[Rfam]
RNA sequence: AGCUAGUUCUUACCGCGGUGCUACAACAAGCAUAACAUCUAACACCGGGUAAAAACUAGCUCG
Numbered sequence: 001a002g003c004u005a006g007u008u009c010u011u012a013c014c015g016c017g018g019u020g021c022u023a024c025a026a027c028a029a030g031c032a033u034a035a036c037a038u039c040u041a042a043c044a045c046c047g048g049g050u051a052a053a054a055a056c057u058a059g060c061u062c063g
Stems, first nucleotide, its partner, number of pairs: 002060007010052005016047005022041002026038001

This 63-nucleotide sequence from Caenorhabditis brenneri belongs to the Rfam family "mir-36_2 microRNA precursor family".
The base pairs follow the family's consensus structure, which was predicted with RNAalifold.
The sequence is in the family's curated seed alignment.
Lineage of the source: Eukaryota > Protostomia > Rhabditida > Rhabditina > Caenorhabditis.
Its Rfam clan is "mir-36 clan".